This 89-nucleotide RNA from Alicyclobacillus sp. SO9 belongs to the Rfam family "c-di-GMP-I riboswitch aptamer". The source organism's lineage runs through Bacteria, Bacillati, Bacilli, Caryophanales and Alicyclobacillus. It scores 63 bits against the family's covariance model.
RNA sequence: UUGACCAAAAGGCAACCCAUUGGAAACGAUGGUGACGCAAAACUACAGGGGCUACGGCAGAACAACUGCUAGGCCAGCCAGUUGCUCGU
Numbered sequence: 001u002u003g004a005c006c007a008a009a010a011g012g013c014a015a016c017c018c019a020u021u022g023g024a025a026a027c028g029a030u031g032g033u034g035a036c037g038c039a040a041a042a043c044u045a046c047a048g049g050g051g052c053u054a055c056g057g058c059a060g061a062a063c064a065a066c067u068g069c070u071a072g073g074c075c076a077g078c079c080a081g082u083u084g085c086u087c088g089u
Stems, first nucleotide, its partner, number of pairs: 012038002017032006041083004048079002050075003057069004